[Rfam]
Nucleotides: 072
Base pairs, nucleotide, nucleotide: 012068013067015065016064017063018062019061020060021059022058023057024056025055026054027053028052
Number, partner (000 for none) and nucleotide at each position: 001000u002000a003000c004000c005000g006000a007000u008000g009000u010000u011000u012068u013067c014000a015065u016064c017063g018062g019061c020060a021059g022058u023057u024056a025055a026054c027053u028052g029000c030000a031000g032000c033000c034000g035000a036000u037000u038000u039000u040000u041000g042000a043000a044000u045000u046000c047000u048000u049000c050000g051000a052028c053027a054026g055025u056024u057023a058022a059021c060020u061019g062018c063017c064016g065015a066000g067013g068012g069000g070000g071000u072000a
Annotation: The record is a 72-nucleotide sequence from Medicago truncatula, which matches "MIR2629 microRNA precursor family" in Rfam. The organism belongs to Medicago, within Eukaryota. Pairs were carried over by alignment from the consensus structure, which was predicted with RNAalifold. Its family is annotated with miRNA-mediated post-transcriptional gene silencing and RISC complex in the Gene Ontology.